[Rfam]
RNA: Bacterial RNase P class A
Organism: Prevotella sp. CAG:924
RNA sequence: GUAGUGCCCCGGCUCUGCCGCUGGCAUCCUUGGAUAAGAGGGGUGCGAGAGGAAAGUCCGGGCAGCACAGGACGCUCCACUUCCGAAAAUAGAAGCUAUUGGUGACAGUAGGCGAGGGCAGAAGAGAAUGACCGCCGUUAUAGUUCUGAUUAUAACGGUAAGGGUGAGAAGGUGGUGUAAGAGACCACCAGUCUGCGGGUGAUCGCAGGGCUGUGUCCGCUGGAGGCUGCAAGUUCAUGUAUACCAUCGUCAUGGGAGGGCUGUCCGCCCGAUGCAUGGUCUUUAUGAUAAUGCUGCGAUGGAGGGUAGAACGCUAGAGCGGCGGGGUGACUCGUCGAGUAGAUAAAUGACAGAGCACUUGGGACGGCUUGGCCGUUUCAGGUUACAGAACCCGGCUUAUCAGGGCACUGCCUUA
Numbered sequence: 001g002u003a004g005u006g007c008c009c010c011g012g013c014u015c016u017g018c019c020g021c022u023g024g025c026a027u028c029c030u031u032g033g034a035u036a037a038g039a040g041g042g043g044u045g046c047g048a049g050a051g052g053a054a055a056g057u058c059c060g061g062g063c064a065g066c067a068c069a070g071g072a073c074g075c076u077c078c079a080c081u082u083c084c085g086a087a088a089a090u091a092g093a094a095g096c097u098a099u100u101g102g103u104g105a106c107a108g109u110a111g112g113c114g115a116g117g118g119c120a121g122a123a124g125a126g127a128a129u130g131a132c133c134g135c136c137g138u139u140a141u142a143g144u145u146c147u148g149a150u151u152a153u154a155a156c157g158g159u160a161a162g163g164g165u166g167a168g169a170a171g172g173u174g175g176u177g178u179a180a181g182a183g184a185c186c187a188c189c190a191g192u193c194u195g196c197g198g199g200u201g202a203u204c205g206c207a208g209g210g211c212u213g214u215g216u217c218c219g220c221u222g223g224a225g226g227c228u229g230c231a232a233g234u235u236c237a238u239g240u241a242u243a244c245c246a247u248c249g250u251c252a253u254g255g256g257a258g259g260g261c262u263g264u265c266c267g268c269c270c271g272a273u274g275c276a277u278g279g280u281c282u283u284u285a286u287g288a289u290a291a292u293g294c295u296g297c298g299a300u301g302g303a304g305g306g307u308a309g310a311a312c313g314c315u316a317g318a319g320c321g322g323c324g325g326g327g328u329g330a331c332u333c334g335u336c337g338a339g340u341a342g343a344u345a346a347a348u349g350a351c352a353g354a355g356c357a358c359u360u361g362g363g364a365c366g367g368c369u370u371g372g373c374c375g376u377u378u379c380a381g382g383u384u385a386c387a388g389a390a391c392c393c394g395g396c397u398u399a400u401c402a403g404g405g406c407a408c409u410g411c412c413u414u415a
Stems, first nucleotide, its partner, number of pairs: 001411009011400001013355005019349001021049002024046008054398003058395005063229004075225005080095004096111001098109004112220002116218005132163002134159011171189006191211001192209007233312004244302005279294001320337007